The record is a 215-nucleotide RNA sequence from Ktedonobacteria bacterium brp13, which matches "HNH endonuclease-associated RNA and ORF (HEARO) RNA" in Rfam. On this family, see Weinberg et al., Nature 2009: "Exceptional structured noncoding RNAs revealed by bacterial metagenome analysis". Lineage of the source: Bacteria > Bacillati > Chloroflexota > Ktedonobacteria. The match comes from Rfam's covariance-model search (138 bits).
[Rfam]
RNA sequence: GUCAGGAACCCCACGAAUAAAUCCGGGGGCUUGCGCAAGUAAGCCCACACCUGACCAGUCUUAGUCUUGAAACACAGGCUCCCUUCGGGAAGAAAUAGGUACCAACGGGUGCAUGCCAGCCCGCUGCUCUACGGUCCAACAUUAAACAGGCUUACAGGGUUAAACCAGUGUGUUGGACGAGAAACCUUCCCGAAGAUCGACGAGGCAAACAUUAC
Numbered sequence: 001g002u003c004a005g006g007a008a009c010c011c012c013a014c015g016a017a018u019a020a021a022u023c024c025g026g027g028g029g030c031u032u033g034c035g036c037a038a039g040u041a042a043g044c045c046c047a048c049a050c051c052u053g054a055c056c057a058g059u060c061u062u063a064g065u066c067u068u069g070a071a072a073c074a075c076a077g078g079c080u081c082c083c084u085u086c087g088g089g090a091a092g093a094a095a096u097a098g099g100u101a102c103c104a105a106c107g108g109g110u111g112c113a114u115g116c117c118a119g120c121c122c123g124c125u126g127c128u129c130u131a132c133g134g135u136c137c138a139a140c141a142u143u144a145a146a147c148a149g150g151c152u153u154a155c156a157g158g159g160u161u162a163a164a165c166c167a168g169u170g171u172g173u174u175g176g177a178c179g180a181g182a183a184a185c186c187u188u189c190c191c192g193a194a195g196a197u198c199g200a201c202g203a204g205g206c207a208a209a210c211a212u213u214a215c
Stems, first nucleotide, its partner, number of pairs: 001055006010029002012026001015023002030043004058201003063080005083195010099132002103126002106123005114207004134178009146169002149166002152163003